[Rfam]
RNA sequence: GGCUCAACUUUGAAGUAGAGCAGAUUAGAAGGAUUAUCUGAUCCUACUGAACUAUUCUACUUCGACUUUGUGCCG
Numbered sequence: 001g002g003c004u005c006a007a008c009u010u011u012g013a014a015g016u017a018g019a020g021c022a023g024a025u026u027a028g029a030a031g032g033a034u035u036a037u038c039u040g041a042u043c044c045u046a047c048u049g050a051a052c053u054a055u056u057c058u059a060c061u062u063c064g065a066c067u068u069u070g071u072g073c074c075g
Stems, first nucleotide, its partner, number of pairs: 001074003005070003011064010022053002025050004030045001032043004
RNA: mir-5928 microRNA precursor family
Organism: Haemonchus placei